[Rfam]
The family of this 152-nucleotide RNA from Pseudomonas protegens is "radC RNA". Rfam 15.1 lists 500 matches to the family in 142 species. The sequence is in the family's curated seed alignment.

RNA sequence: UAUUUUCAACCAUGUACCGCUGACGUUGUCAGCAACAUGCCCUAGUAGUCACGAUCUGUGAGACUACGACACGAAAAUUCGUGUUGAUCAGACCCAAGACCGCCCAGCUUCCGGUAGUGCGGUUGAUCAGUCAAUAAUUGACUGAUGGAAGC
Numbered sequence: 001u002a003u004u005u006u007c008a009a010c011c012a013u014g015u016a017c018c019g020c021u022g023a024c025g026u027u028g029u030c031a032g033c034a035a036c037a038u039g040c041c042c043u044a045g046u047a048g049u050c051a052c053g054a055u056c057u058g059u060g061a062g063a064c065u066a067c068g069a070c071a072c073g074a075a076a077a078u079u080c081g082u083g084u085u086g087a088u089c090a091g092a093c094c095c096a097a098g099a100c101c102g103c104c105c106a107g108c109u110u111c112c113g114g115u116a117g118u119g120c121g122g123u124u125g126a127u128c129a130g131u132c133a134a135u136a137a138u139u140g141a142c143u144g145a146u147g148g149a150a151g152c
Stems, first nucleotide, its partner, number of pairs: 011039004019033006045067006053089004068085007119152002126146008